[Rfam]
RNA sequence: CAUAGGGUGAAAGUCCCGAAGCGGUAAAAGGUCGAGGCCGCAUAGCUCGGAUGGCACCGACAGGGGAGACCCCUGCGGUGAAGCCCAUCGACAAAGCCCCGGAAAGCGGGGUGAGCGAGUGAGCGGGCCGCAACGACG
Numbered sequence: 001c002a003u004a005g006g007g008u009g010a011a012a013g014u015c016c017c018g019a020a021g022c023g024g025u026a027a028a029a030g031g032u033c034g035a036g037g038c039c040g041c042a043u044a045g046c047u048c049g050g051a052u053g054g055c056a057c058c059g060a061c062a063g064g065g066g067a068g069a070c071c072c073c074u075g076c077g078g079u080g081a082a083g084c085c086c087a088u089c090g091a092c093a094a095a096g097c098c099c100c101g102g103a104a105a106g107c108g109g110g111g112u113g114a115g116c117g118a119g120u121g122a123g124c125g126g127g128c129c130g131c132a133a134c135g136a137c138g
Stems, first nucleotide, its partner, number of pairs: 021041004050089005055080005064071002096112006115131003
Dot-bracket structure: ....................((((.............))))........((((((((((....((....))....)))))....)))))......((((((.....))))))..(((...........))).......
RNA: Group II catalytic intron D1-D4-4
Organism: Cystobacter ferrugineus